[Rfam]
RNA sequence: GGUCUUCCCACCAGCGCCAGAAGCGCCUAUAAUAUAGAGGUCCGGUUCGCCGGACUAUGGUGAUAAACGUGCGUGUAAUAAGCAGGCCGGACCGGGGUGCGAUUCCCCGCGGCUCCACCAAAAUCUCUGCGGGUGUCGCCGCGAGUGUGGGGCCGAUCAGGAUCGACGGAUGUGUAAAGACGUAACUUUUACCCGCGUGGGCUUCGUCAUCCGCCCAUUUUCAUAAAUGCAAACGAUAACUUUGCACAGGACGUCCGUUUGGCUGCGUAAUGCGGUCUGAUUGACUUCCGACUAAGUCCCCCGGCUACGGCUGAGGGCGGGGCGCGGAGGGGGGCCCGGCAACAGCAACCCCCUCC
Numbered sequence: 001g002g003u004c005u006u007c008c009c010a011c012c013a014g015c016g017c018c019a020g021a022a023g024c025g026c027c028u029a030u031a032a033u034a035u036a037g038a039g040g041u042c043c044g045g046u047u048c049g050c051c052g053g054a055c056u057a058u059g060g061u062g063a064u065a066a067a068c069g070u071g072c073g074u075g076u077a078a079u080a081a082g083c084a085g086g087c088c089g090g091a092c093c094g095g096g097g098u099g100c101g102a103u104u105c106c107c108c109g110c111g112g113c114u115c116c117a118c119c120a121a122a123a124u125c126u127c128u129g130c131g132g133g134u135g136u137c138g139c140c141g142c143g144a145g146u147g148u149g150g151g152g153c154c155g156a157u158c159a160g161g162a163u164c165g166a167c168g169g170a171u172g173u174g175u176a177a178a179g180a181c182g183u184a185a186c187u188u189u190u191a192c193c194c195g196c197g198u199g200g201g202c203u204u205c206g207u208c209a210u211c212c213g214c215c216c217a218u219u220u221u222c223a224u225a226a227a228u229g230c231a232a233a234c235g236a237u238a239a240c241u242u243u244g245c246a247c248a249g250g251a252c253g254u255c256c257g258u259u260u261g262g263c264u265g266c267g268u269a270a271u272g273c274g275g276u277c278u279g280a281u282u283g284a285c286u287u288c289c290g291a292c293u294a295a296g297u298c299c300c301c302c303g304g305c306u307a308c309g310g311c312u313g314a315g316g317g318c319g320g321g322g323c324g325c326g327g328a329g330g331g332g333g334g335c336c337c338g339g340c341a342a343c344a345g346c347a348a349c350c351c352c353c354u355c356c
Stems, first nucleotide, its partner, number of pairs: 040055005059193005069186002071183004083172002087169003093109005110155007194206002197203001200216002320337004326353002329350002

Rfam assigns this 356-nucleotide sequence from Candidatus Phycosocius bacilliformis to the family "Alphaproteobacteria transfer-messenger RNA". By type it is a non-coding RNA gene. Bacterial tmRNA, also known as 10Sa RNA or SsrA, is named for its dual tRNA and mRNA-like properties. Clan: tRNA clan.